[Rfam]
RNA sequence: AGCCUCAGGGGGGAUCAGGGCAUCGCCUCUUCUUCUUCCUGAAGGACACUCCCUUCAGAUGGUGAAUGGGAACUCCCUUCCUCCUGCAGCAGCCGGCCUGCGGGCGUCCUGAUAGUCCGGUGUGAAUGCGGCAGUGUGAGUGCUCUGCUGCGGCUGCUGCCACUGCCCGGAGGGAAAGCGCCCCAGAGC
Numbered sequence: 001a002g003c004c005u006c007a008g009g010g011g012g013g014a015u016c017a018g019g020g021c022a023u024c025g026c027c028u029c030u031u032c033u034u035c036u037u038c039c040u041g042a043a044g045g046a047c048a049c050u051c052c053c054u055u056c057a058g059a060u061g062g063u064g065a066a067u068g069g070g071a072a073c074u075c076c077c078u079u080c081c082u083c084c085u086g087c088a089g090c091a092g093c094c095g096g097c098c099u100g101c102g103g104g105c106g107u108c109c110u111g112a113u114a115g116u117c118c119g120g121u122g123u124g125a126a127u128g129c130g131g132c133a134g135u136g137u138g139a140g141u142g143c144u145c146u147g148c149u150g151c152g153g154c155u156g157c158u159g160c161c162a163c164u165g166c167c168c169g170g171a172g173g174g175a176a177a178g179c180g181c182c183c184c185a186g187a188g189c
Stems, first nucleotide, its partner, number of pairs: 002189002005186001008184004015175002017054004026045001031044001033042002055171002062083001064080003068077003088164002090159004098153006105147001109142001
The record is a 189-nucleotide RNA sequence from Chinchilla lanigera, which matches "FGF-1 internal ribosome entry site (IRES)" in Rfam. NCBI's taxonomy places the organism under Eukaryota, Chordata, Tetrapoda, Mammalia, Chinchilla. It scores 108 bits against the family's covariance model. This family represents the FGF-1 internal ribosome entry site (IRES). The FGF-1 IRES is present in the 5' UTR of the mRNA and allows cap-independent translation. It is thought that FGF-1 IRES activity is strictly controlled and highly tissue specific.